[Rfam]
RNA sequence: UCGAGGAUGACACUCUUGUAUGCAUUCCUUGGAAACUCUGUACAAAAUGGGUGAGAAUACUCUAUCGUCUCCUUAUCGAAGCUGAGGUUC
Numbered sequence: 001u002c003g004a005g006g007a008u009g010a011c012a013c014u015c016u017u018g019u020a021u022g023c024a025u026u027c028c029u030u031g032g033a034a035a036c037u038c039u040g041u042a043c044a045a046a047a048u049g050g051g052u053g054a055g056a057a058u059a060c061u062c063u064a065u066c067g068u069c070u071c072c073u074u075a076u077c078g079a080a081g082c083u084g085a086g087g088u089u090c
Stems, first nucleotide, its partner, number of pairs: 001087002023053005029045003
RNA: Small nucleolar RNA SNORD116
Organism: Eschrichtius robustus